[Rfam]
A member of the RNA family "Small nucleolar RNA SNORA44" from Aquarana catesbeiana, 134 nucleotides long.
The family's consensus secondary structure was predicted with PFOLD.
The family is grouped with related families in Rfam's "SNORA44 clan".
ACA44 is a member of the H/ACA class of snoRNA that guide the sites of modification of uridines to pseudouridines.
A reference for the family is Huttenhofer et al. (2001), "RNomics: an experimental approach that identifies 201 candidates for novel, small, non-messenger RNAs in mouse", EMBO J.
A search with the family's covariance model found it, with a score of 60 bits.
RNA sequence: CUGCAUGUAAACCGAGGCCUGCAACUAGCUCGUAGUAGCAGGAUCUCCAACAUCAUGCAAGAAAAACUGAGGGGCUUUGACAACUUUGGUUUUCCAACUGGUUCCAUAAGCUGUCACUCAACCCUCCCACAGCU
Dot-bracket structure: ...........(......((((.........)))).....)...........................(((((.........((..(((..............)))......)).......)))))........